Rfam assigns this 84-nucleotide RNA from Bombyx mori to the family "mir-2807 microRNA precursor family". Lineage of the source: Eukaryota > Ecdysozoa > Pancrustacea > Dicondylia > Bombyx. A reference for the family is Liu et al. (2010), "MicroRNAs of Bombyx mori identified by Solexa sequencing", BMC Genomics.
RNA sequence: UUAACUCAAAUUUGUAUGGAGUUGGAUUGUUUGCUUACGUUUGCCGCUAGGGGCGCUGUUCUAACUGCAUUCAUAUUUGAGUUA
Numbered sequence: 001u002u003a004a005c006u007c008a009a010a011u012u013u014g015u016a017u018g019g020a021g022u023u024g025g026a027u028u029g030u031u032u033g034c035u036u037a038c039g040u041u042u043g044c045c046g047c048u049a050g051g052g053g054c055g056c057u058g059u060u061c062u063a064a065c066u067g068c069a070u071u072c073a074u075a076u077u078u079g080a081g082u083u084a
Stems, first nucleotide, its partner, number of pairs: 008078004013073002016070001018068001020066007028058002034052003039047002